[Rfam]
RNA sequence: GGGUCAAUGAUGAAAUUUUUGCUUUGUCUCUAGAAAAGUGUUGUCUUAAAAGUCAUGCUCAAUAGAGUUUCGCUGCAGACCC
Numbered sequence: 001g002g003g004u005c006a007a008u009g010a011u012g013a014a015a016u017u018u019u020u021g022c023u024u025u026g027u028c029u030c031u032a033g034a035a036a037a038g039u040g041u042u043g044u045c046u047u048a049a050a051a052g053u054c055a056u057g058c059u060c061a062a063u064a065g066a067g068u069u070u071c072g073c074u075g076c077a078g079a080c081c082c
Stems, first nucleotide, its partner, number of pairs: 001082004005075002008072002

Notes
The family of this 82-nucleotide RNA sequence from Carlito syrichta is "Small nucleolar RNA SNORD115". A search with the family's covariance model found it, with a score of 59 bits. Lineage of the source: Eukaryota > Deuterostomia > Tetrapoda > Mammalia > Carlito. The family has 32 seed sequences and 3,387 matches in Rfam 15.1.